[Rfam]
RNA: Glycine riboswitch aptamer
Organism: Tepidimonas taiwanensis
RNA sequence: UGCCGCGCAUCAGGAGAGAGUGGGCGUGGUUGCUCGGUUGUCGGGUACCGUCGCCCACCGCCGAAGGCGCAGGCUGCUUGCCGAACGCUCAGGCAAAAGGACUGAUGCAGCACC
Numbered sequence: 001u002g003c004c005g006c007g008c009a010u011c012a013g014g015a016g017a018g019a020g021u022g023g024g025c026g027u028g029g030u031u032g033c034u035c036g037g038u039u040g041u042c043g044g045g046u047a048c049c050g051u052c053g054c055c056c057a058c059c060g061c062c063g064a065a066g067g068c069g070c071a072g073g074c075u076g077c078u079u080g081c082c083g084a085a086c087g088c089u090c091a092g093g094c095a096a097a098a099g100g101a102c103u104g105a106u107g108c109a110g111c112a113c114c
Base pairs, nucleotide, nucleotide: 007108008107009106010105011104012103013102020058021057022056023055024054025053026052060094061093062092063090064089067088068087069086073081074080